[Rfam]
RNA sequence: GUAUGACACUAGGGGCGCCAUUUGGCUGAGAAGUACCCUCGAACCUGAUCCGGAUAAUUCCGGCGUAGGAAAGUGAGCCUCCUUUUGU
Numbered sequence: 001g002u003a004u005g006a007c008a009c010u011a012g013g014g015g016c017g018c019c020a021u022u023u024g025g026c027u028g029a030g031a032a033g034u035a036c037c038c039u040c041g042a043a044c045c046u047g048a049u050c051c052g053g054a055u056a057a058u059u060c061c062g063g064c065g066u067a068g069g070a071a072a073g074u075g076a077g078c079c080u081c082c083u084u085u086u087g088u
Stems, first nucleotide, its partner, number of pairs: 007075004011039004016033001017026003044069004050063004
RNA: TPP riboswitch aptamer (THI element)
Organism: Levilactobacillus bambusae